RNA sequence: UCCGAACGAGGGCCGAGGCUCCGGUGCCGUCACCGGGGCGCGGGGGACCCAAAGGGACCGAGCGUUGUCCCAGGGGCGAAUCGCGGUCCGAGCACCGCGUAGCGCCACAGGUGCGAGCCCGUCAGCUAACUCCGCAGGCCUACAGCGAGCAGCGAU
Numbered sequence: 001u002c003c004g005a006a007c008g009a010g011g012g013c014c015g016a017g018g019c020u021c022c023g024g025u026g027c028c029g030u031c032a033c034c035g036g037g038g039c040g041c042g043g044g045g046g047a048c049c050c051a052a053a054g055g056g057a058c059c060g061a062g063c064g065u066u067g068u069c070c071c072a073g074g075g076g077c078g079a080a081u082c083g084c085g086g087u088c089c090g091a092g093c094a095c096c097g098c099g100u101a102g103c104g105c106c107a108c109a110g111g112u113g114c115g116a117g118c119c120c121g122u123c124a125g126c127u128a129a130c131u132c133c134g135c136a137g138g139c140c141u142a143c144a145g146c147g148a149g150c151a152g153c154g155a156u
Stems, first nucleotide, its partner, number of pairs: 011140004018039009040135006050073001074120003082099004102114004
Dot-bracket structure: ..........((((...(((((((((....)))))))))((((((....(......................)(((.....((((..........))))..((((.....))))...))).........)))))).))))................
RNA: c-di-AMP riboswitch aptamer (ydaO/yuaA leader)